[Rfam]
RNA sequence: AUUUCUUUUAAUAUAUCAAGAAGUAGAAUUAGCAAUGAAGAAAGAACCAAGAAGUUGAAAAGCCAUCAUUGCUUAUAACCAAAACUCAUAAACCCAUACCAUGCUUCUUUCUUCACUGUCAAUUAUACUUCCUAAUAUGUUAAAAGAAAU
Number, nucleotide and partner (000 for none) at each position: 001a000002u000003u000004u147005c146006u145007u144008u143009u142010a141011a140012u139013a138014u137015a136016u135017c000018a133019a000020g131021a130022a129023g128024u127025a126026g000027a124028a123029u122030u121031a000032g000033c118034a117035a000036u115037g114038a113039a112040g111041a110042a109043a108044g107045a106046a105047c000048c103049a102050a000051g100052a000053a000054g000055u000056u096057g095058a000059a000060a000061a000062g000063c000064c000065a000066u000067c000068a000069u000070u000071g000072c000073u000074u000075a000076u000077a000078a000079c000080c000081a000082a000083a000084a000085c000086u000087c000088a000089u000090a000091a000092a000093c000094c000095c057096a056097u000098a000099c000100c051101a000102u049103g048104c000105u046106u045107c044108u043109u042110u041111c040112u039113u038114c037115a036116c000117u034118g033119u000120c000121a030122a029123u028124u027125a000126u025127a024128c023129u022130u021131c020132c000133u018134a000135a016136u015137a014138u013139g012140u011141u010142a009143a008144a007145a006146g005147a004148a000149a000150u000

The record is a 150-nucleotide RNA sequence from Gossypium stocksii, which matches "MIR8643 microRNA precursor family" in Rfam. The organism belongs to Gossypium, within Eukaryota.